[Rfam]
RNA sequence: AAUUGGCUUAGUUAGGAGGCAGAAAUCGAUUCGACAAACAGAGAUAUCGGGUUCCUGAUGUUUCUGGUCGAUUUAACCAAGGCCUUUUUGAGGGGACUCUUGGCUUCUCUUUCUUCACCCGUUGUCCCCCAAGCAGCCUUGGACAUUU
Numbered sequence: 001a002a003u004u005g006g007c008u009u010a011g012u013u014a015g016g017a018g019g020c021a022g023a024a025a026u027c028g029a030u031u032c033g034a035c036a037a038a039c040a041g042a043g044a045u046a047u048c049g050g051g052u053u054c055c056u057g058a059u060g061u062u063u064c065u066g067g068u069c070g071a072u073u074u075a076a077c078c079a080a081g082g083c084c085u086u087u088u089u090g091a092g093g094g095g096a097c098u099c100u101u102g103g104c105u106u107c108u109c110u111u112u113c114u115u116c117a118c119c120c121g122u123u124g125u126c127c128c129c130c131a132a133g134c135a136g137c138c139u140u141g142g143a144c145a146u147u148u
Base pairs, nucleotide, nucleotide: 004021005020007018008017009016033069034068035067037065041062042061077142078141079140080139081138082137083136087133088132089131090130092129093128094127095126096125097124100121